The family of this 57-nucleotide RNA sequence from Sphingomonas sp. SRS2 is "terC RNA". The base pairs follow the family's consensus structure, which is taken from published work. The family's RNA type in Rfam is cis-regulatory element. It scores 60 bits against the family's covariance model. Taxonomically the source falls in Sphingomonas (Bacteria, Pseudomonadati, Alphaproteobacteria, Sphingomonadaceae).
RNA sequence: UGUGCGGGCCGGGCCCCUCUGGCGACUGCCAAACGGUCGCGAUGUCGGACCGCAUCG
Dot-bracket structure: .....((.((((.........(((((((.....)))))))....)))).))......
Numbered sequence: 001u002g003u004g005c006g007g008g009c010c011g012g013g014c015c016c017c018u019c020u021g022g023c024g025a026c027u028g029c030c031a032a033a034c035g036g037u038c039g040c041g042a043u044g045u046c047g048g049a050c051c052g053c054a055u056c057g
Stems, first nucleotide, its partner, number of pairs: 006051002009048004022040007